[Rfam]
RNA sequence: ACGAUCAAUAUCGAUUUAAUCGAUCGUUUAUAUCGAUCGAUUAGCUAAUAAUAACCUUUGUCAGUAACAUGCACAGAUAUGUUACCAGAAAGACAUUCCGGGAACAACAGAACCACAAUUCAGAAAUUCCCACAGCCGGACCUCCGGCACUGUAACCCUUUACCUGCCGGUAUCCACGUUUGUGGGUACCGGCUUUUUUAUUCACC
Numbered sequence: 001a002c003g004a005u006c007a008a009u010a011u012c013g014a015u016u017u018a019a020u021c022g023a024u025c026g027u028u029u030a031u032a033u034c035g036a037u038c039g040a041u042u043a044g045c046u047a048a049u050a051a052u053a054a055c056c057u058u059u060g061u062c063a064g065u066a067a068c069a070u071g072c073a074c075a076g077a078u079a080u081g082u083u084a085c086c087a088g089a090a091a092g093a094c095a096u097u098c099c100g101g102g103a104a105c106a107a108c109a110g111a112a113c114c115a116c117a118a119u120u121c122a123g124a125a126a127u128u129c130c131c132a133c134a135g136c137c138g139g140a141c142c143u144c145c146g147g148c149a150c151u152g153u154a155a156c157c158c159u160u161u162a163c164c165u166g167c168c169g170g171u172a173u174c175c176a177c178g179u180u181u182g183u184g185g186g187u188a189c190c191g192g193c194u195u196u197u198u199u200a201u202u203c204a205c206c
Base pairs, nucleotide, nucleotide: 018042019041020040021039022038023037024036025035026034060078061077062076064074065073100158101157102156135148136147137146138145139144166193167192168191169190170189171188172187173186174185175184176183177182
IS102 RNA: a 206-nucleotide RNA sequence from Escherichia coli. About the family: This family consists of a group of Shigella flexneri and Escherichia coli RNA genes which are 208 bases in length and are found between the yeeP and flu genes. The function of this RNA is unknown. The family's RNA type in Rfam is small RNA.